[Rfam]
RNA sequence: AAAUAUCUUCAGGGCAGGGUGUAAUUCCCGACCGGCGGUAAUUUCGUUUUUACGGAAAAGUCCGCGACCCACAGUUUUGUGGUUGAUAUGGUGAAAAUCCAUAACCGACAGUAAAGUCUGGUAUGCAGAAGAAAUUA
Numbered sequence: 001a002a003a004u005a006u007c008u009u010c011a012g013g014g015c016a017g018g019g020u021g022u023a024a025u026u027c028c029c030g031a032c033c034g035g036c037g038g039u040a041a042u043u044u045c046g047u048u049u050u051u052a053c054g055g056a057a058a059a060g061u062c063c064g065c066g067a068c069c070c071a072c073a074g075u076u077u078u079g080u081g082g083u084u085g086a087u088a089u090g091g092u093g094a095a096a097a098u099c100c101a102u103a104a105c106c107g108a109c110a111g112u113a114a115a116g117u118c119u120g121g122u123a124u125g126c127a128g129a130a131g132a133a134a135u136u137a
Stems, first nucleotide, its partner, number of pairs: 003135002006132005017029003031117002033107002035065004060105002069082002087103005109120003
Shown here is a 137-nucleotide sequence from Weissella paramesenteroides, a member of the family "FMN riboswitch aptamer (RFN element)". A search with the family's covariance model found it, with a score of 113 bits. From the family's description: The RFN element is a highly conserved domain that is found frequently in the 5'-untranslated regions of prokaryotic mRNAs that encode for flavin mononucleotide (FMN) biosynthesis and transport proteins. NCBI's taxonomy places the organism under Bacteria, Bacillati, Lactobacillaceae, Weissella, Weissella paramesenteroides. Pairs were carried over by alignment from the consensus structure, which is taken from published work.